[Rfam]
Shown here is a 387-nucleotide RNA sequence from Allobacillus sp. SKP2-8, a member of the family "Bacterial RNase P class B".
RNA sequence: AUGCUCAAGUAACCGCUCGCACAUGUUUGCGAGAGGAAAGUCCAUGCUCACACAAGCUGAGAUGCUUGUAGUGUUCGUGCUUGACGAAACAAUAAGUCAAGGCAGCGAAGAAUCGCUGACGGCAGGGUUUCGACCUACGUCCUUAAUGGAUAUGGUCCAUGACCCUUUAAAGUGCCACAGAGACGAGCUUGAUUGGAAACAAUCAAGGUGGAACGCGGUAAACCCCUCGAGUGAGAAACCCAAAAUAAGGUAGGGGCGCUCUAUUGCAGGGAAUUCAACCUAGCAUAGAGGCAGGCUUGCUAGACAAGUCUGCAGAUAGAUGGUUACACCGGAGUACGAGGCUGACCACCGUUUGCAGUACAAAGGAACAGAACAUGGCUUAUGUAG
Dot-bracket structure: ...((.(.((((((.((((((......))))))....[[[.[[[[[(((((((((((......)))))).....(((.(((((((..........))))))(((((((....)))))).)((.((((....((((...(((.......)))..)))).....)))).....(((((...........((((((((....)))))))).........)))..))))).))))))))...(((...........)))...((((((....................))))))(((((((((.....)))))))))........)))))).((...((((....................))))...)).......]]]]]]]].)..))
It is annotated as a ribozyme. Rfam describes the family as follows. Ribonuclease P (RNase P) is a ubiquitous endoribonuclease, found in archaea, bacteria and eukarya as well as chloroplasts and mitochondria. Its best characterised activity is the generation of mature 5'-ends of tRNAs by cleaving the 5'-leader elements of precursor-tRNAs. Cellular RNase Ps are ribonucleoproteins. Clan: RNaseP clan. The match comes from Rfam's covariance-model search (306 bits).